[Rfam]
RNA sequence: UUAUAAGCAAAAUUCAACAUUUUAGAUUCAUUCAUUAAAUGAUGUAUGUGGUCUUUAUUAUAGACCACAUACAUCAUUUAAUGAAUAAAUUUAAAAUAUUGAUUUUUGCUUAUAU
Numbered sequence: 001u002u003a004u005a006a007g008c009a010a011a012a013u014u015c016a017a018c019a020u021u022u023u024a025g026a027u028u029c030a031u032u033c034a035u036u037a038a039a040u041g042a043u044g045u046a047u048g049u050g051g052u053c054u055u056u057a058u059u060a061u062a063g064a065c066c067a068c069a070u071a072c073a074u075c076a077u078u079u080a081a082u083g084a085a086u087a088a089a090u091u092u093a094a095a096a097u098a099u100u101g102a103u104u105u106u107u108g109c110u111u112a113u114a115u
Stems, first nucleotide, its partner, number of pairs: 002114006009107004015101003019097007027089002030086015049067004
The record is a 115-nucleotide sequence from Medicago truncatula, which matches "MIR2593 microRNA precursor family" in Rfam.
It scores 103 bits against the family's covariance model.
Rfam 15.1 lists 1,262 matches to the family in 6 species.